[Rfam]
The family of this 105-nucleotide sequence from Alkalicella caledoniensis is "SAM riboswitch aptamer (S box leader)". Pairs were carried over by alignment from the consensus structure, which is taken from published work. Rfam links the family to the GO term regulation of gene expression. A search with the family's covariance model found it, with a score of 92 bits. Lineage of the source: Bacteria > Bacillati > Bacillota > Proteinivoracaceae > Alkalicella.
RNA sequence: ACCUUAUCAAGAGAAACCGAGGGAAUGGCCCUAUGAAGUUUCAGCAACCACACUAAUUAGUGCACGGUGCUAACUCCAACAGAACAUAGUUCUGAGAGAUGAGGG
Numbered sequence: 001a002c003c004u005u006a007u008c009a010a011g012a013g014a015a016a017c018c019g020a021g022g023g024a025a026u027g028g029c030c031c032u033a034u035g036a037a038g039u040u041u042c043a044g045c046a047a048c049c050a051c052a053c054u055a056a057u058u059a060g061u062g063c064a065c066g067g068u069g070c071u072a073a074c075u076c077c078a079a080c081a082g083a084a085c086a087u088a089g090u091u092c093u094g095a096g097a098g099a100u101g102a103g104g105g
Stems, first nucleotide, its partner, number of pairs: 002104007013042005021031003026078003043071004048067002051062003075097001080094006